[Rfam]
RNA sequence: ACAUAACGUGAUGACAACGUCCUCCUCCUCCCAGUUGUCAGAUCGUUUUCGGCAGACACCGUCCCUCCUCCCUCGAUGUCUGCCCAACCUAUUUAAAAGGACCUCGCCACCUCCUCCCGGCGAGGUCUUUUUUU
Numbered sequence: 001a002c003a004u005a006a007c008g009u010g011a012u013g014a015c016a017a018c019g020u021c022c023u024c025c026u027c028c029u030c031c032c033a034g035u036u037g038u039c040a041g042a043u044c045g046u047u048u049u050c051g052g053c054a055g056a057c058a059c060c061g062u063c064c065c066u067c068c069u070c071c072c073u074c075g076a077u078g079u080c081u082g083c084c085c086a087a088c089c090u091a092u093u094u095a096a097a098a099g100g101a102c103c104u105c106g107c108c109a110c111c112u113c114c115u116c117c118c119g120g121c122g123a124g125g126u127c128u129u130u131u132u133u134u
Base pairs, nucleotide, nucleotide: 007045008044012040013039014038015037016036017035051084052083053082054081055080056079057078058077060075098129099128100127101126102125103124104123105122106121107120108119
The record is a 134-nucleotide sequence from Maritalea myrionectae, which matches "Alphaproteobacterial ar14" in Rfam.
From the family's description: Smr14C2 was renamed NfeR1 (Nodule Formation Efficiency RNA) highly expressed in salt stress and during the symbiotic interaction on legume roots.
It scores 68 bits against the family's covariance model.